[Rfam]
Source information
Shown here is a 109-nucleotide sequence, a member of the family "c-di-GMP-II-GCG riboswitch aptamer". Its Rfam clan is "c-di-GMP_II riboswitch clan". A reference for the family is Weinberg et al. (2017), "Bioinformatic analysis of riboswitch structures uncovers variant classes with altered ligand specificity", Proc Natl Acad Sci U S A.
RNA sequence: CUGCCGCCGGGACGCAGUGAUCCUCGCAGGGUCGCACGGUCGCCUCGGGUCGGCCUCGUGUCGGCUCGACCUGCGAGGGGAGCGAGUGGCGAGCCCGACCCGGGUGUCC
Numbered sequence: 001c002u003g004c005c006g007c008c009g010g011g012a013c014g015c016a017g018u019g020a021u022c023c024u025c026g027c028a029g030g031g032u033c034g035c036a037c038g039g040u041c042g043c044c045u046c047g048g049g050u051c052g053g054c055c056u057c058g059u060g061u062c063g064g065c066u067c068g069a070c071c072u073g074c075g076a077g078g079g080g081a082g083c084g085a086g087u088g089g090c091g092a093g094c095c096c097g098a099c100c101c102g103g104g105u106g107u108c109c
Base pairs, nucleotide, nucleotide: 003107004106007103008102009101010100011099013084014083015082022078023077024076025075026074027073028072029071038096039095040092041091042090043089044088